[Rfam]
RNA sequence: GUACCCCAUUUCACUUUGCCAUUGGGACGGCCCCAGUGUCUUGAAUGGUCAUUCAGGUGGGGUAUAUUGAAGUCCUUUUUCAAAACGCAAGCGAACGAGUUGUUUGGCUUGGAUCCUGUGAGAGGACACAUCC
Numbered sequence: 001g002u003a004c005c006c007c008a009u010u011u012c013a014c015u016u017u018g019c020c021a022u023u024g025g026g027a028c029g030g031c032c033c034c035a036g037u038g039u040c041u042u043g044a045a046u047g048g049u050c051a052u053u054c055a056g057g058u059g060g061g062g063u064a065u066a067u068u069g070a071a072g073u074c075c076u077u078u079u080u081c082a083a084a085a086c087g088c089a090a091g092c093g094a095a096c097g098a099g100u101u102g103u104u105u106g107g108c109u110u111g112g113a114u115c116c117u118g119u120g121a122g123a124g125g126a127c128a129c130a131u132c133c
Base pairs, nucleotide, nucleotide: 037064038063039062040061041060046055047054048053073126074125075124076123077122078121088111089109092106093105094104095103096102
RNA: Small nucleolar RNA SNORA27